Shown here is a 108-nucleotide RNA from Halobacillus halophilus, a member of the family "PyrR binding site". The source organism's lineage runs through Bacteria, Bacillota, Bacillaceae, Halobacillus and Halobacillus halophilus. A search with the family's covariance model found it, with a score of 59 bits. The family's RNA type in Rfam is cis-regulatory element.
RNA sequence: AAGUCCUUUAAGAGCAGUCCCGUGAGGCUGAAAAGGUGACGGAUUAUACACGGCAUUCGUGUGUACACAAACCCCUUUUCUGCCUUUCCGCGGAAAAGGGGUUUUUUG
Numbered sequence: 001a002a003g004u005c006c007u008u009u010a011a012g013a014g015c016a017g018u019c020c021c022g023u024g025a026g027g028c029u030g031a032a033a034a035g036g037u038g039a040c041g042g043a044u045u046a047u048a049c050a051c052g053g054c055a056u057u058c059g060u061g062u063g064u065a066c067a068c069a070a071a072c073c074c075c076u077u078u079u080c081u082g083c084c085u086u087u088c089c090g091c092g093g094a095a096a097a098g099g100g101g102u103u104u105u106u107u108g
Stems, first nucleotide, its partner, number of pairs: 005036005015030005045065003049061004069104015

Description: About the family: This family represents the PyrR binding site and terminator structure.